[Rfam]
RNA sequence: CAGCAACGGCGGAAGUAUUCCAAAACCGUUUAAAAAAUGAACAGCGCAUACUGGACUGGAGCCGAUCCACGACGAUACUUCCUCUACUGACGUGGCAUUUCCCCCGAUGCCAGGCCAGCCGAAGGCAUUCGAGGAACGCAUGCCUUCGCUUACUCCUAACGCUUUUAACCCGGUUUCCUCCCCCAGACUCCGG
Numbered sequence: 001c002a003g004c005a006a007c008g009g010c011g012g013a014a015g016u017a018u019u020c021c022a023a024a025a026c027c028g029u030u031u032a033a034a035a036a037a038u039g040a041a042c043a044g045c046g047c048a049u050a051c052u053g054g055a056c057u058g059g060a061g062c063c064g065a066u067c068c069a070c071g072a073c074g075a076u077a078c079u080u081c082c083u084c085u086a087c088u089g090a091c092g093u094g095g096c097a098u099u100u101c102c103c104c105c106g107a108u109g110c111c112a113g114g115c116c117a118g119c120c121g122a123a124g125g126c127a128u129u130c131g132a133g134g135a136a137c138g139c140a141u142g143c144c145u146u147c148g149c150u151u152a153c154u155c156c157u158a159a160c161g162c163u164u165u166u167a168a169c170c171c172g173g174u175u176u177c178c179u180c181c182c183c184c185a186g187a188c189u190c191c192g193g
Stems, first nucleotide, its partner, number of pairs: 039164002042161001087118003091114001094111001096109003121147008129138001170193004176187002
RNA: RgsA sRNA